[Rfam]
RNA: Group II catalytic intron D1-D4-6
Organism: Smithella sp. SCADC
RNA sequence: CCACCGGAUAGCAAGUUCUUGGAGGCAUGAUGGCAACACCAUGUUUUAUGCGUAGGAUAGCGAGCAGACAGGCCGUAAGCCGAUAGGUUGAAGGGAACGAGCCACGUAAGCAUCUAAGAGGGAAGGACGACACUUUUACGAGGGUGGAAGUCAACACAGGCAGAGCGAGAGAAAAAAAAGGCAAGCACCCGCCUGCUUCCCCGGGGUCUGAGACCA
Numbered sequence: 001c002c003a004c005c006g007g008a009u010a011g012c013a014a015g016u017u018c019u020u021g022g023a024g025g026c027a028u029g030a031u032g033g034c035a036a037c038a039c040c041a042u043g044u045u046u047u048a049u050g051c052g053u054a055g056g057a058u059a060g061c062g063a064g065c066a067g068a069c070a071g072g073c074c075g076u077a078a079g080c081c082g083a084u085a086g087g088u089u090g091a092a093g094g095g096a097a098c099g100a101g102c103c104a105c106g107u108a109a110g111c112a113u114c115u116a117a118g119a120g121g122g123a124a125g126g127a128c129g130a131c132a133c134u135u136u137u138a139c140g141a142g143g144g145u146g147g148a149a150g151u152c153a154a155c156a157c158a159g160g161c162a163g164a165g166c167g168a169g170a171g172a173a174a175a176a177a178a179a180g181g182c183a184a185g186c187a188c189c190c191g192c193c194u195g196c197u198u199c200c201c202c203g204g205g206g207u208c209u210g211a212g213a214c215c216a
Stems, first nucleotide, its partner, number of pairs: 009063001011061002015058002018055002020052002022047008031038002098210001099208001101207003105203002120201006126152003131146004157195005163188001165186002